SAM-I/IV (S-adenosyl methionine) riboswitch aptamer: a 107-nucleotide RNA from Phyllobacterium sp. YR620. The match comes from Rfam's covariance-model search (55 bits). The family's consensus secondary structure is taken from published work. Rfam 15.1 lists 567 matches to the family in 508 species.
[Rfam]
RNA sequence: CUUCGACAUCAAGAGUUGGGUUGACGCCCAACGCCAACCUGCGCUCCGGGCAAGGUGGUACUUCCGUCAGGGAGGAUGUGGCCGAACCGGCAAUUAUACGGAUUUAG
Number, nucleotide and partner (000 for none) at each position: 001c000002u000003u000004c000005g000006a079007c078008a077009u076010c075011a000012a000013g000014a000015g032016u000017u030018g029019g028020g027021u026022u000023g000024a000025c000026g021027c020028c019029c018030a017031a000032c015033g059034c058035c057036a000037a000038c055039c054040u053041g051042c050043g000044c000045u000046c000047c101048g000049g000050g042051c041052a000053a040054g039055g038056u000057g035058g034059u033060a000061c000062u000063u000064c000065c000066g000067u000068c000069a000070g000071g000072g000073a000074g000075g010076a009077u008078g007079u006080g000081g091082c090083c089084g088085a000086a000087c000088c084089g083090g082091c081092a000093a000094u000095u000096a000097u000098a000099c000100g000101g047102a000103u000104u000105u000106a000107g000